[Rfam]
Lysine riboswitch aptamer: a 175-nucleotide RNA from Scardovia inopinata.

RNA sequence: AGUAAUCGAAGAGGUGCGACUGACAUCAGUAGCCAUCAUGAGCCGGCCAGGCUAUGACUGAUGGUAAAAGGGGAAGCCGCCGAAGCCCCGGGCAGGUACAAGCCCGGGAGCUGGUCUGCUGCUGAAUAAGUUUCAGACUGUCGCGAAAUCAGAUUCGCGGAGCGCUGUCGAAACU
Numbered sequence: 001a002g003u004a005a006u007c008g009a010a011g012a013g014g015u016g017c018g019a020c021u022g023a024c025a026u027c028a029g030u031a032g033c034c035a036u037c038a039u040g041a042g043c044c045g046g047c048c049a050g051g052c053u054a055u056g057a058c059u060g061a062u063g064g065u066a067a068a069a070g071g072g073g074a075a076g077c078c079g080c081c082g083a084a085g086c087c088c089c090g091g092g093c094a095g096g097u098a099c100a101a102g103c104c105c106g107g108g109a110g111c112u113g114g115u116c117u118g119c120u121g122c123u124g125a126a127u128a129a130g131u132u133u134c135a136g137a138c139u140g141u142c143g144c145g146a147a148a149u150c151a152g153a154u155u156c157g158c159g160g161a162g163c164g165c166u167g168u169c170g171a172a173a174c175u
Stems, first nucleotide, its partner, number of pairs: 006170001008168001010166002016080003020076002024072001032065007084112003087108007113139006121131003141160007
Pairs were carried over by alignment from the consensus structure, which is taken from published work.